[Rfam]
RNA sequence: CCCUCUUGCAAAGGUGUGUCUGUAGUUCCCUGUCUUAGGACAUGUAAGAAUUGGAGCAAAGAAAUGUGGAUUUGGAGAAACUUGGGGUCAGCUUGUUCCCUGCAUGCUUAAGAUCAACCAUCCCACAUAG
Numbered sequence: 001c002c003c004u005c006u007u008g009c010a011a012a013g014g015u016g017u018g019u020c021u022g023u024a025g026u027u028c029c030c031u032g033u034c035u036u037a038g039g040a041c042a043u044g045u046a047a048g049a050a051u052u053g054g055a056g057c058a059a060a061g062a063a064a065u066g067u068g069g070a071u072u073u074g075g076a077g078a079a080a081c082u083u084g085g086g087g088u089c090a091g092c093u094u095g096u097u098c099c100c101u102g103c104a105u106g107c108u109u110a111a112g113a114u115c116a117a118c119c120a121u122c123c124c125a126c127a128u129a130g
Stems, first nucleotide, its partner, number of pairs: 003056004015044007025029001068123003072120001090108003094104003